[Rfam]
RNA: Bacterial large signal recognition particle RNA
Organism: Rubrobacter radiotolerans
RNA sequence: CCGCGCUAAGCGGGGAGCUGGCGAUGCCCUGUACCUGCGAUCGCCUAGCAGGGCCUAACCCCCCGCCCGAGGCGGCCGGAAUUCGGUGGAAAUCGGCGCGGAAGCGUUGAUGGCCCGGUCCCGGGCAAUGAGGCCCGGUGAACCGUGUCAGGACCGAGAGGUAGCAGCACUAAGCAGGUAACCUCAUGUGCUUUGGGGUAGCCGGGCCGGAGUGGAUGCGCCGGGAGUUCGCCGGGUUCGGGUCCGUCGAAGGCGGGGUGCGCGG
Numbered sequence: 001c002c003g004c005g006c007u008a009a010g011c012g013g014g015g016a017g018c019u020g021g022c023g024a025u026g027c028c029c030u031g032u033a034c035c036u037g038c039g040a041u042c043g044c045c046u047a048g049c050a051g052g053g054c055c056u057a058a059c060c061c062c063c064c065g066c067c068c069g070a071g072g073c074g075g076c077c078g079g080a081a082u083u084c085g086g087u088g089g090a091a092a093u094c095g096g097c098g099c100g101g102a103a104g105c106g107u108u109g110a111u112g113g114c115c116c117g118g119u120c121c122c123g124g125g126c127a128a129u130g131a132g133g134c135c136c137g138g139u140g141a142a143c144c145g146u147g148u149c150a151g152g153a154c155c156g157a158g159a160g161g162u163a164g165c166a167g168c169a170c171u172a173a174g175c176a177g178g179u180a181a182c183c184u185c186a187u188g189u190g191c192u193u194u195g196g197g198g199u200a201g202c203c204g205g206g207c208c209g210g211a212g213u214g215g216a217u218g219c220g221c222c223g224g225g226a227g228u229u230c231g232c233c234g235g236g237u238u239c240g241g242g243u244c245c246g247u248c249g250a251a252g253g254c255g256g257g258g259u260g261c262g263c264g265g
Stems, first nucleotide, its partner, number of pairs: 001265006008056001010054002012030004017025001019023001034052005061258007071248005079239009091229002093224006101217001104213002111209009120197006126188002129186005135178002138175002145170004153162003